The family of this 70-nucleotide RNA sequence from Taxus chinensis is "Small nucleolar RNA snoR60".
RNA sequence: AAGUGAAGGAUGAUAUACUCGGAUUCCCCUUCAAGACAUUGUAGAUGAUGUCAACCGAGUUUCUGACACU
Numbered sequence: 001a002a003g004u005g006a007a008g009g010a011u012g013a014u015a016u017a018c019u020c021g022g023a024u025u026c027c028c029c030u031u032c033a034a035g036a037c038a039u040u041g042u043a044g045a046u047g048a049u050g051u052c053a054a055c056c057g058a059g060u061u062u063c064u065g066a067c068a069c070u
Base pairs, nucleotide, nucleotide: 002070003069004068005067